[Rfam]
RNA sequence: GCAACCUCAAGCUGGCGGCCGAGUACCCCAGCGUGUUCCGCUCGCUGUUGGGCAUCUCGUGGAUGUGGUUCUUUGGCGCGGUCUUCCUGGCGCAAUUUCCAUCGUUCGCACGCGACGUGCUG
Numbered sequence: 001g002c003a004a005c006c007u008c009a010a011g012c013u014g015g016c017g018g019c020c021g022a023g024u025a026c027c028c029c030a031g032c033g034u035g036u037u038c039c040g041c042u043c044g045c046u047g048u049u050g051g052g053c054a055u056c057u058c059g060u061g062g063a064u065g066u067g068g069u070u071c072u073u074u075g076g077c078g079c080g081g082u083c084u085u086c087c088u089g090g091c092g093c094a095a096u097u098u099c100c101a102u103c104g105u106u107c108g109c110a111c112g113c114g115a116c117g118u119g120c121u122g
Stems, first nucleotide, its partner, number of pairs: 010049003014045001017042003021038006051121005057115005063105003067099002072094001074092002077089002080087002